[Rfam]
RNA sequence: GGCUGACUGACUGUAGUUCUUCUCUGGCAAACUUUAUGACUGUUCUUACACUAAAGCUGCCAGCUGAAGAACUGUUGUCGUCAGC
Number, nucleotide and partner (000 for none) at each position: 001g000002g000003c000004u000005g082006a081007c080008u000009g000010a078011c077012u000013g000014u000015a000016g000017u071018u070019c069020u068021u067022c066023u000024c000025u000026g061027g060028c059029a000030a058031a000032c056033u055034u054035u053036a052037u000038g000039a000040c000041u000042g000043u000044u000045c000046u000047u000048a000049c000050a000051c000052u036053a035054a034055a033056g032057c000058u030059g028060c027061c026062a000063g000064c000065u000066g022067a021068a020069g019070a018071a017072c000073u000074g000075u000076u000077g011078u010079c000080g007081u006082c005083a000084g000085c000
Description
Rfam assigns this 85-nucleotide sequence from Danionella cerebrum to the family "mir-22 microRNA precursor family". The family's consensus secondary structure was predicted with RNAalifold. Gene Ontology terms of the family: miRNA-mediated post-transcriptional gene silencing and RISC complex. The source organism's lineage runs through Eukaryota, Opisthokonta, Neopterygii, Otophysi and Danionella. The match comes from Rfam's covariance-model search (80 bits).